[Rfam]
Plastid-rps12 3UTR RNA: a 91-nucleotide RNA sequence.
RNA sequence: GGUUUACAUUGGUGCAAAUCCAAUCAACUCCAUUUUUUAGAAAACCCCCAAUGAUAACAAAUGGUUAUCCAUUAAGCGGGGGAAAUUCCAU
Numbered sequence: 001g002g003u004u005u006a007c008a009u010u011g012g013u014g015c016a017a018a019u020c021c022a023a024u025c026a027a028c029u030c031c032a033u034u035u036u037u038u039a040g041a042a043a044a045c046c047c048c049c050a051a052u053g054a055u056a057a058c059a060a061a062u063g064g065u066u067a068u069c070c071a072u073u074a075a076g077c078g079g080g081g082g083a084a085a086u087u088c089c090a091u
Base pairs, nucleotide, nucleotide: 009023010022011021012020046081047080048079049078050072053069054068055067056066057065058064

The sequence is in the family's curated seed alignment. From the family's description: Plastid rpl20 is a non-coding RNA (ncRNA) recognised in plastids. It was found in the three prime untranslated region (3UTR) of rps12 gene, its 3UTR location sugest a role in transcript maduration.